[Rfam]
RNA sequence: AUUUAUAUAAGCCUGCAUAAUGGGUAGGCGUUUCUACAACAGGACCGAUCUUGUUUCUAUAAAU
Numbered sequence: 001a002u003u004u005a006u007a008u009a010a011g012c013c014u015g016c017a018u019a020a021u022g023g024g025u026a027g028g029c030g031u032u033u034c035u036a037c038a039a040c041a042g043g044a045c046c047g048a049u050c051u052u053g054u055u056u057c058u059a060u061a062a063a064u
Base pairs, nucleotide, nucleotide: 001064002063003062004061005060006059007058008036011029012028013027014026015025016024022046023045030037038055039054040053041052042051043050044049
RNA: 2dG-I riboswitch aptamer (M. florum)
Organism: Spiroplasma gladiatoris